[Rfam]
This 175-nucleotide RNA sequence from Paenibacillus wynnii belongs to the Rfam family "FMN riboswitch aptamer (RFN element)".
The base pairs follow the family's consensus structure, which is taken from published work.
RNA sequence: UUGAUCCUUCAGGGCAGGGUGUAAUUCCCUACCGGCGGUGAUGAUACUGCUUAUAGACUACGAGUAUAGUCUGCAGUACUUAGUCCGCUACCCGGCUGUUGUUAUUUAUAACGCAGACGGUGGACCCGGUGAAAUUCCGGGACCGACAGUAUAGUCUGGAUGGAAGAAGGAGAGA
Numbered sequence: 001u002u003g004a005u006c007c008u009u010c011a012g013g014g015c016a017g018g019g020u021g022u023a024a025u026u027c028c029c030u031a032c033c034g035g036c037g038g039u040g041a042u043g044a045u046a047c048u049g050c051u052u053a054u055a056g057a058c059u060a061c062g063a064g065u066a067u068a069g070u071c072u073g074c075a076g077u078a079c080u081u082a083g084u085c086c087g088c089u090a091c092c093c094g095g096c097u098g099u100u101g102u103u104a105u106u107u108a109u110a111a112c113g114c115a116g117a118c119g120g121u122g123g124a125c126c127c128g129g130u131g132a133a134a135u136u137c138c139g140g141g142a143c144c145g146a147c148a149g150u151a152u153a154g155u156c157u158g159g160a161u162g163g164a165a166g167a168a169g170g171a172g173a174g175a
Stems, first nucleotide, its partner, number of pairs: 005171006017029003031155002033145002035088004092120002125141005147158003